[Rfam]
Nucleotides: 174
Stems, first nucleotide, its partner, number of pairs: 007168005017083006025075001034067006087116007095108004117143002121139007145159005
Number, partner (000 for none) and nucleotide at each position: 001000u002000a003000c004000a005000a006000a007168c008167a009166a010165a011164g012000a013000g014000g015000u016000u017083g018082c019081g020080a021079c022078c023000a024000a025075a026000a027000u028000c029000a030000g031000u032000c033000c034067u035066g036065c037064c038063g039062g040000c041000u042000a043000g044000u045000c046000u047000a048000c049000c050000c051000a052000a053000g054000a055000c056000g057000a058000u059000g060000a061000c062039c063038c064037g065036g066035u067034a068000c069000a070000a071000a072000a073000g074000g075025u076000g077000c078022g079021g080020u081019u082018g083017c084000c085000g086000a087116a088115a089114g090113u091112u092111u093110u094000c095108c096107a097106c098105u099000c100000g101000g102000g103000g104000g105098a106097g107096u108095g109000c110093a111092g112091a113090g114089c115088u116087u117143g118142g119000g120000a121139c122138a123137u124136g125135g126134a127133a128000a129000a130000a131000g132000a133127u134126u135125u136124c137123a138122u139121g140000g141000a142118c143117u144000g145159u146158c147157g148156u149155u150000u151000u152000u153000u154000a155149a156148a157147c158146g159145g160000u161000g162000c163000g164011c165010u166009u167008u168007g169000c170000u171000a172000u173000c174000a

A member of the RNA family "Lysine riboswitch aptamer" from Fructobacillus durionis, 174 nucleotides long. The base pairs follow the family's consensus structure, which is taken from published work. Rfam describes the family as follows. Riboswitches are metabolite binding domains within certain messenger RNAs that serve as precision sensors for their corresponding targets. Allosteric rearrangement of mRNA structure is mediated by ligand binding, and this results in modulation of gene expression. A search with the family's covariance model found it, with a score of 90 bits.